RNA sequence: CCAUUACUGUUGCCAAUAUGCAACUCUGUUCAAUACAAAUUGGAAUUGUGUUUUAGCAAUGGUGAUGG
Numbered sequence: 001c002c003a004u005u006a007c008u009g010u011u012g013c014c015a016a017u018a019u020g021c022a023a024c025u026c027u028g029u030u031c032a033a034u035a036c037a038a039a040u041u042g043g044a045a046u047u048g049u050g051u052u053u054u055a056g057c058a059a060u061g062g063u064g065a066u067g068g
Stems, first nucleotide, its partner, number of pairs: 005064009015054002019050005025044004
RNA: mir-367 microRNA precursor family
Organism: Tursiops truncatus